[Rfam]
Nucleotides: 135
Base pairs, nucleotide, nucleotide: 001058002057003056004055005054013048014047015046016045017044018043019042021040022039068128069127070126071125072124073123081116082115083114084113085112086111087110096107097106098105
Number, partner (000 for none) and nucleotide at each position: 001058g002057c003056a004055c005054c006000u007000g008000a009000a010000u011000c012000u013048u014047u015046c016045c017044c018043a019042g020000g021040c022039c023000u024000g025000g026000c027000a028000g029000a030000a031000u032000a033000u034000g035000u036000g037000u038000a039022g040021g041000u042019c043018u044017g045016g046015g047014g048013a049000c050000a051000c052000a053000u054005g055004g056003u057002g058001c059000u060000a061000a062000a063000g064000c065000a066000a067000u068128g069127c070126a071125a072124a073123g074000c075000a076000a077000a078000u079000c080000c081116a082115g083114a084113c085112a086111a087110g088000u089000c090000a091000c092000u093000u094000c095000u096107c097106u098105c099000u100000u101000u102000g103000u104000u105098g106097a107096g108000g109000u110087c111086u112085u113084g114083u115082c116081u117000c118000u119000a120000c121000a122000a123073c124072u125071u126070u127069g128068u129000a130000a131000c132000a133000u134000u135000g
Small nucleolar RNA SNORA55: a 135-nucleotide RNA from Podarcis lilfordi. Gene Ontology terms of the family: RNA processing and nucleolus. The source organism's lineage runs through Eukaryota, Bifurcata, Episquamata, Lacertibaenia and Podarcis. About the family: ACA55 is a member of the H/ACA class of snoRNA that guide the sites of modification of uridines to pseudouridines.